This 90-nucleotide RNA sequence from Drosophila albomicans belongs to the Rfam family "mir-286 microRNA precursor family". It scores 94 bits against the family's covariance model.
[Rfam]
RNA sequence: UUAAAAUUAAAUGGCGAUUGUCGGUAUGGUCGCUUUUAAAGCAGCAUCGGCAAAGUGACUAGACCGAACACUCGUGCUAUAAUUUUAAAA
Numbered sequence: 001u002u003a004a005a006a007u008u009a010a011a012u013g014g015c016g017a018u019u020g021u022c023g024g025u026a027u028g029g030u031c032g033c034u035u036u037u038a039a040a041g042c043a044g045c046a047u048c049g050g051c052a053a054a055g056u057g058a059c060u061a062g063a064c065c066g067a068a069c070a071c072u073c074g075u076g077c078u079a080u081a082a083u084u085u086u087a088a089a090a
Base pairs, nucleotide, nucleotide: 011080012079013078014077015076016075019070020069021068022066023065024064027061028060029059030058031057033055034054035053036052